[Rfam]
RNA sequence: AAAAAGGGUCGGUUGGCUAAAUAUGCCACUCUCGCCUGCGUGGUGAGUGCUGUAUGGCUAUCAAGACAUAUGGCCGACAUAAUUUGUGGAUCUCUAUAGGGUUGGCUCCCUGGCCGGACCCUCCA
Dot-bracket structure: .......(((((.((((.......))))(.((((((.....)))))).)(((((((..........))))))))))))....................(.(..((.(((......)))))..)).
Shown here is a 125-nucleotide sequence from Solanum lycopersicum, a member of the family "U11 spliceosomal RNA". By type it is a spliceosomal small nuclear RNA. The family is grouped with related families in Rfam's "U1 clan". Lineage of the source: Eukaryota > Tracheophyta > lamiids > Solanum > Solanum subgen. Lycopersicon. On this family, see Montzka and Steitz, Proc Natl Acad Sci U S A 1988: "Additional low-abundance human small nuclear ribonucleoproteins: U11, U12, etc". The family's consensus secondary structure is taken from published work.